[Rfam]
RNA sequence: UGGCUACAAAAUAACUUAUUCUGUAGUCACUUUGAGUUACGAUAACUACUAUAUUAAUUUACGAGAUUAUAGUAACUCCUUACUAAAUGGUUUACUAUAACAUUAUGGUAAAUAUCCCCAUAUGUUAUAGUAAUCCAUGUAUUGAUAUUAUCAUAAAUUAGUAUAUAAAAUUAUCGUAAAUGCAGGUGGUUACAGAAUAACUUAUUUUGUAGCUG
Number, nucleotide and partner (000 for none) at each position: 001u215002g214003g213004c212005u211006a210007c209008a208009a207010a206011a205012u204013a203014a202015c000016u200017u199018a198019u197020u196021c195022u194023g193024u192025a191026g190027u189028c188029a187030c186031u185032u184033u000034g000035a000036g000037u179038u178039a177040c176041g175042a174043u173044a172045a171046c000047u169048a000049c000050u165051a164052u163053a162054u161055u160056a159057a158058u157059u156060u155061a154062c000063g000064a000065g152066a151067u150068u000069a148070u147071a146072g000073u000074a142075a000076c000077u000078c000079c000080u000081u141082a140083c139084u000085a000086a000087a138088u137089g136090g135091u000092u133093u132094a131095c130096u129097a128098u127099a126100a125101c124102a123103u122104u000105a000106u000107g117108g116109u000110a000111a000112a000113u000114a000115u000116c108117c107118c000119c000120a000121u000122a103123u102124g101125u100126u099127a098128u097129a096130g095131u094132a093133a092134u000135c090136c089137a088138u087139g083140u082141a081142u074143u000144g000145a000146u071147a070148u069149u000150a067151u066152c065153a000154u061155a060156a059157a058158u057159u056160a055161g054162u053163a052164u051165a050166u000167a000168a000169a047170a000171u045172u044173a043174u042175c041176g040177u039178a038179a037180a000181u000182g000183c000184a032185g031186g030187u029188g028189g027190u026191u025192a024193c023194a022195g021196a020197a019198u018199a017200a016201c000202u014203u013204a012205u011206u010207u009208u008209g007210u006211a005212g004213c003214u002215g001